[Rfam]
RNA sequence: UGUUCCGGUGGGCCUGGCGCUCUUCCCAAAGAACCACGAGAGGGAAAGCAACCUCACCAAGCCCCACCCCUCCCGCCCACGGCGCCCGCUCACUCGGGCGAGUGAACAUCACCAACUCGGCUGGCUUCGGGACAGGUUGACUGCUCUACGCUCAGCGCGACACCACACAACCGCAGACAUGCGACGGCCCCCGCCGGGACUGCAAUCCCAAUGCGAGGGCCUGACCACCAAGGAAGAAAGCCGCUUCCUG
Number, nucleotide and partner (000 for none) at each position: 001u000002g000003u000004u000005c000006c000007g229008g228009u227010g226011g000012g000013c000014c000015u000016g077017g076018c075019g074020c000021u000022c000023u000024u000025c000026c000027c000028a000029a000030a000031g000032a000033a000034c000035c000036a000037c000038g000039a000040g000041a000042g000043g000044g000045a000046a000047a000048g000049c000050a000051a000052c000053c000054u000055c000056a000057c000058c000059a000060a000061g000062c000063c000064c000065c000066a000067c000068c000069c000070c000071u000072c000073c000074c019075g018076c017077c016078c000079a000080c000081g000082g000083c000084g000085c000086c000087c000088g000089c000090u105091c104092a103093c102094u101095c100096g000097g000098g000099c000100g095101a094102g093103u092104g091105a090106a000107c000108a000109u000110c000111a000112c000113c000114a000115a000116c000117u000118c000119g000120g156121c155122u154123g153124g152125c000126u000127u000128c000129g000130g000131g000132a000133c000134a000135g000136g000137u000138u000139g000140a000141c000142u000143g000144c000145u000146c000147u000148a000149c000150g000151c000152u124153c123154a122155g121156c120157g000158c000159g000160a000161c000162a000163c000164c000165a000166c000167a000168c000169a000170a000171c000172c000173g000174c000175a000176g000177a000178c000179a000180u000181g000182c000183g000184a000185c000186g221187g220188c219189c218190c217191c000192c215193g214194c213195c000196g209197g208198g207199a206200c000201u000202g000203c000204a000205a000206u199207c198208c197209c196210a000211a000212u000213g194214c193215g192216a000217g190218g189219g188220c187221c186222u000223g000224a000225c000226c010227a009228c008229c007230a000231a000232g248233g247234a246235a245236g244237a000238a000239a000240g000241c000242c000243g000244c236245u235246u234247c233248c232249u000250g000
The family of this 250-nucleotide RNA sequence from Streptomyces sporangiiformans is "Streptomyces sRNA 4677". Lineage of the source: Bacteria > Actinomycetota > Actinomycetes > Streptomycetaceae > Streptomyces. The match comes from Rfam's covariance-model search (233 bits). The literature on the family includes a 2014 paper in PLoS One by Hindra et al., "Complex intra-operonic dynamics mediated by a small RNA in Streptomyces coelicolor". The family's RNA type in Rfam is small RNA. About the family: Located in the intergenic region between anti-sigma factor SCO4677 gene and a putative regulatory protein gene SCO4676. scr4677 expression requires the SCO4677 activity and scr4677 sRNA itself seem to affect the levels of the SCO4676-associated transcripts.